This 71-nucleotide RNA sequence from Rhizophagus clarus belongs to the Rfam family "tRNA". Rfam 15.1 lists 5,335,975 matches to the family in 14,413 species. Lineage of the source: Eukaryota > Opisthokonta > Glomeromycota > Glomeromycotina > Rhizophagus. A search with the family's covariance model found it, with a score of 57 bits. It is annotated as a transfer RNA. From the family's description: Transfer RNA (tRNA) molecules are approximately 80 nucleotides in length. Their secondary structure includes four short double-helical elements and three loops (D, anti-codon, and T loops).

[Rfam]
RNA sequence: AGGAGAGUAGUUUAAUGGUAAAAUGAUAAGCUCCAAACUUCUUGUUGGGGGUUCGAUUCCUCCCUCUCCUG
Numbered sequence: 001a002g003g004a005g006a007g008u009a010g011u012u013u014a015a016u017g018g019u020a021a022a023a024u025g026a027u028a029a030g031c032u033c034c035a036a037a038c039u040u041c042u043u044g045u046u047g048g049g050g051g052u053u054c055g056a057u058u059c060c061u062c063c064c065u066c067u068c069c070u071g
Stems, first nucleotide, its partner, number of pairs: 001070007010024004026042001028040003047063005